Record summary
The record is a 149-nucleotide sequence from Tumebacillus algifaecis, which matches "c-di-AMP riboswitch aptamer (ydaO/yuaA leader)" in Rfam.
RNA sequence: AUAGAUCUAAGGCUGAAUUCCGGCUCGAUCCGGAAGCGGAGGACCCAAUCAAUACGGGGUGAAAUCUGCUUAAUGCAGAAAGGGUGAACAUGAUCUCUCUUGCCACCCGAACCCGACAGCUAACUUCGUAAGCCGAUGCGAGAAGAGGG
Numbered sequence: 001a002u003a004g005a006u007c008u009a010a011g012g013c014u015g016a017a018u019u020c021c022g023g024c025u026c027g028a029u030c031c032g033g034a035a036g037c038g039g040a041g042g043a044c045c046c047a048a049u050c051a052a053u054a055c056g057g058g059g060u061g062a063a064a065u066c067u068g069c070u071u072a073a074u075g076c077a078g079a080a081a082g083g084g085u086g087a088a089c090a091u092g093a094u095c096u097c098u099c100u101u102g103c104c105a106c107c108c109g110a111a112c113c114c115g116a117c118a119g120c121u122a123a124c125u126u127c128g129u130a131a132g133c134c135g136a137u138g139c140g141a142g143a144a145g146a147g148g149g
Stems, first nucleotide, its partner, number of pairs: 011134004018035006036129006046056001057114003065079004082108004
Dot-bracket structure: ..........((((...((((((......))))))((((((....(.........)(((.....((((.......))))..((((...................))))...))).........)))))).))))...............
The source organism's lineage runs through Bacteria, Bacillota, Bacilli, Alicyclobacillaceae and Tumebacillus.